This 80-nucleotide RNA sequence from Chelydra serpentina belongs to the Rfam family "mir-16 microRNA precursor family".
Clan: mir-15 clan.
Nucleotides: 080
Base pairs, nucleotide, nucleotide: 001080002079003078005076006075007074010073011070012069013068014067015066016065017064018063022059024057025056026055027054028053029052
Number, partner (000 for none) and nucleotide at each position: 001080a002079g003078c004000a005076c006075c007074u008000u009000a010073u011070a012069g013068a014067c015066u016065a017064a018063c019000a020000g021000a022059u023000a024057u025056a026055u027054u028053g029052g030000a031000g032000c033000a034000u035000u036000g037000a038000u039000a040000u041000a042000g043000a044000g045000c046000a047000a048000u049000g050000c051000u052029c053028c054027a055026a056025u057024a058000g059022a060000a061000c062000u063018g064017u065016u066015a067014g068013u069012c070011u071000a072000u073010a074007a075006g076005g077000u078003g079002c080001u